[Rfam]
RNA sequence: AAACAGAUAACGCCGAGUGCCGCGGGCAAACCUGCGGCAGCGGGAGACCCACUUUUGGGGUGAAUUCACGGAGACGGCUCACAUGACACGGCCGCCCCUGUGAUAGGGAACCUUCUUUCCCGAACCCGUCAGCUAAUCUCGUAGGCGGAGAAGGAAAAAGCG
Numbered sequence: 001a002a003a004c005a006g007a008u009a010a011c012g013c014c015g016a017g018u019g020c021c022g023c024g025g026g027c028a029a030a031c032c033u034g035c036g037g038c039a040g041c042g043g044g045a046g047a048c049c050c051a052c053u054u055u056u057g058g059g060g061u062g063a064a065u066u067c068a069c070g071g072a073g074a075c076g077g078c079u080c081a082c083a084u085g086a087c088a089c090g091g092c093c094g095c096c097c098c099u100g101u102g103a104u105a106g107g108g109a110a111c112c113u114u115c116u117u118u119c120c121c122g123a124a125c126c127c128g129u130c131a132g133c134u135a136a137u138c139u140c141g142u143a144g145g146c147g148g149a150g151a152a153g154g155a156a157a158a159a160g161c162g
Stems, first nucleotide, its partner, number of pairs: 011147004018039009040142006050057002058127003066103006106121004

The record is a 162-nucleotide RNA from Lachnoclostridium sp. An14, which matches "c-di-AMP riboswitch aptamer (ydaO/yuaA leader)" in Rfam. Its family is annotated with regulation of gene expression and cyclic-di-AMP binding in the Gene Ontology. The source organism's lineage runs through Bacteria, Bacillati, Lachnospirales, Lachnospiraceae and Lachnoclostridium.